[Rfam]
The record is an 82-nucleotide sequence from Paenibacillus sabuli, which matches "ZMP/ZTP riboswitch aptamer (pfl RNA motif)" in Rfam.
Lineage of the source: Bacteria > Bacillati > Bacillota > Bacilli > Paenibacillus.
The base pairs follow the family's consensus structure, which is taken from published work.
The literature on the family includes a 2015 paper in Nat Struct Mol Biol by Jones and Ferre-D'Amare, "Recognition of the bacterial alarmone ZMP through long-distance association of two RNA subdomains".
The match comes from Rfam's covariance-model search (55 bits).
Rfam links the family to the GO terms regulation of purine nucleotide biosynthetic process and one-carbon metabolic process.

RNA sequence: ACCGCGGCACGCGACUGGCGGAGCAUGGGCGACCAUGGGGGAGCGUGCGCAGCGUCAUAUGCCGUACGCCUGGGCGAGAGGU
Dot-bracket structure: ...((.((((((..(([[[[....((((....))))..))..)))))))).........((((...]]]]..))))......